[Rfam]
RNA sequence: ACAAUGAUACUCCUGUAUGCAGCUUCGAGAGAACCUCGGAGGGGUGAAACUCCCGUGA
Numbered sequence: 001a002c003a004a005u006g007a008u009a010c011u012c013c014u015g016u017a018u019g020c021a022g023c024u025u026c027g028a029g030a031g032a033a034c035c036u037c038g039g040a041g042g043g044g045u046g047a048a049a050c051u052c053c054c055g056u057g058a
Base pairs, nucleotide, nucleotide: 012055013022014021015020023041024040025039027037028036029035042054043053044052
A member of the RNA family "pemK RNA", 58 nucleotides long.
By type it is a cis-regulatory element.